[Rfam]
The family of this 46-nucleotide RNA from Labeo rohita is "Histone 3' UTR stem-loop".
Rfam describes the family as follows. The mRNAs of metazoan histone genes lack a poly-A tail. 3' end processing occurs at a site between a highly conserved stem-loop (modelled by this family) and a purine rich region around 20 nts downstream (the histone downstream element, or HDE). The stem-loop is bound by a 31 kDa stem-loop binding protein (SLBP - also termed the histone hairpin binding protein, or HBP).

RNA sequence: CCAAAGGCUCUUUUCAGAGCCACCCACUAUUUCUAUAAGAGCGAUU
Dot-bracket structure: .....((((((....)))))).........................